[Rfam]
RNA sequence: AUCUGCCGGUCAAUGGCACUGGUAGAAUUCACGGUUGAAAUCAGACACCGUGUUCUUCCGGUGGCAUCCAUGGGCAGUG
Number, nucleotide and partner (000 for none) at each position: 001a000002u000003c077004u076005g075006c074007c073008g000009g071010u070011c000012a000013a067014u066015g065016g000017c063018a062019c000020u060021g059022g058023u000024a000025g055026a054027a000028u000029u000030c052031a051032c050033g049034g048035u000036u000037g000038a000039a000040a000041u000042c000043a000044g000045a000046c000047a000048c034049c033050g032051u031052g030053u000054u026055c025056u000057u000058c022059c021060g020061g000062u018063g017064g000065c015066a014067u013068c000069c000070a010071u009072g000073g007074g006075c005076a004077g003078u000079g000
RNA: mir-263 microRNA precursor family
Organism: Elysia chlorotica